[Rfam]
RNA sequence: AUAAAAACUAAAUAUUCAUCUCGUAUAACAUUGGAAAUAAGGUCCAAAAGUUUCUACCAGACUACCGUAAACAGUCUGACUACGAGGGUUAAAUAAGCAAUA
Numbered sequence: 001a002u003a004a005a006a007a008c009u010a011a012a013u014a015u016u017c018a019u020c021u022c023g024u025a026u027a028a029c030a031u032u033g034g035a036a037a038u039a040a041g042g043u044c045c046a047a048a049a050g051u052u053u054c055u056a057c058c059a060g061a062c063u064a065c066c067g068u069a070a071a072c073a074g075u076c077u078g079a080c081u082a083c084g085a086g087g088g089u090u091a092a093a094u095a096a097g098c099a100a101u102a
Base pairs, nucleotide, nucleotide: 019087020086021085022084023083024082025081031047032046033045034044035043058078059077060076061075062074063073